The family of this 116-nucleotide sequence from Nocardia mexicana is "SAM (S-adenosyl methionine) riboswitch aptamer".
Pairs were carried over by alignment from the consensus structure, which is taken from published work.
For this family Rfam cites "The aptamer core of SAM-IV riboswitches mimics the ligand-binding site of SAM-I riboswitches" (Weinberg et al., RNA, 2008).
Taxonomically the source falls in Nocardia (Bacteria, Bacillati, Actinomycetes, Mycobacteriales).
RNA sequence: GGUCACGAGUAUCAGCGUCUCGAGCCCCGGCUCGCUGAUCGGCAACCCUCGCGCAGCGGUGGGGUGCCCCGGGUGACGACCUGGCCGAGCCCGCACGGGUCCGGCAAGCGCUGUUG
Numbered sequence: 001g002g003u004c005a006c007g008a009g010u011a012u013c014a015g016c017g018u019c020u021c022g023a024g025c026c027c028c029g030g031c032u033c034g035c036u037g038a039u040c041g042g043c044a045a046c047c048c049u050c051g052c053g054c055a056g057c058g059g060u061g062g063g064g065u066g067c068c069c070c071g072g073g074u075g076a077c078g079a080c081c082u083g084g085c086c087g088a089g090c091c092c093g094c095a096c097g098g099g100u101c102c103g104g105c106a107a108g109c110g111c112u113g114u115u116g
Stems, first nucleotide, its partner, number of pairs: 001081004009040001011039006023032002041068003046064003050059001084105004089100004